[Rfam]
RNA sequence: CAACCCGCAGCACCAGAUGCACUCAAGGAACCGGGGAACCACUCUUUGGGGUGAAUCGGGCAUCCGUGCCCGUAGGAGACCUUCCUGCUCCGAACCCGUCAGCUAACCCGGUAGGCGAGAAGGAAGGAAAGG
Number, nucleotide and partner (000 for none) at each position: 001c000002a000003a000004c000005c000006c000007g000008c000009a000010g000011c117012a000013c115014c114015a000016g000017a000018u029019g000020c027021a000022c000023u000024c000025a000026a000027g020028g000029a018030a112031c111032c110033g109034g108035g107036g000037a000038a000039c000040c048041a047042c000043u000044c000045u000046u000047u041048g040049g097050g096051g095052u000053g000054a000055a000056u000057c072058g071059g070060g069061c000062a000063u000064c000065c000066g000067u000068g000069c060070c059071c058072g057073u000074a000075g091076g090077a089078g088079a000080c000081c000082u000083u000084c000085c000086u000087g000088c078089u077090c076091c075092g000093a000094a000095c051096c050097c049098g000099u000100c000101a000102g000103c000104u000105a000106a000107c035108c034109c033110g032111g031112u030113a000114g014115g013116c000117g011118a000119g000120a000121a000122g000123g000124a000125a000126g000127g000128a000129a000130a000131g000132g000
Notes: Shown here is a 132-nucleotide RNA sequence from Streptomyces chumphonensis, a member of the family "c-di-AMP riboswitch aptamer (ydaO/yuaA leader)". A search with the family's covariance model found it, with a score of 94 bits. The base pairs follow the family's consensus structure. NCBI's taxonomy places the organism under Bacteria, Bacillati, Actinomycetes, Kitasatosporales, Streptomyces.